[Rfam]
RNA sequence: UUUUUUACAAGACUCCGAGCAUUAUUUCCUAACUCUAAAAAUUAAAGACAAAUUUUUGAUAUGGAAUUUAUGCCAGUAACAGCAAAGCUGUUCAAAGGAUAACUUAGAAAUGGGUUAUCCUCUCGUGUUUAGAAAGGUGUCAAAUGCAAUCUAUU
Number, nucleotide and partner (000 for none) at each position: 001u000002u000003u149004u148005u000006u146007a000008c000009a000010a000011g141012a140013c139014u000015c137016c136017g000018a000019g073020c072021a071022u070023u000024a068025u000026u066027u065028c064029c063030u000031a000032a000033c000034u059035c058036u000037a000038a000039a000040a000041a000042u000043u000044a000045a000046a000047g000048a000049c000050a000051a000052a000053u000054u000055u000056u000057u000058g035059a034060u000061a000062u000063g029064g028065a027066a026067u000068u024069u000070a022071u021072g020073c019074c000075a000076g000077u000078a092079a091080c090081a089082g088083c000084a000085a000086a000087g000088c082089u081090g080091u079092u078093c000094a000095a000096a121097g120098g119099a118100u117101a116102a115103c114104u113105u112106a111107g000108a000109a000110a000111u106112g105113g104114g103115u102116u101117a100118u099119c098120c097121u096122c132123u131124c000125g000126u000127g000128u000129u000130u000131a123132g122133a000134a000135a000136g016137g015138u000139g013140u012141c011142a000143a000144a000145u000146g006147c000148a004149a003150u000151c000152u000153a000154u000155u000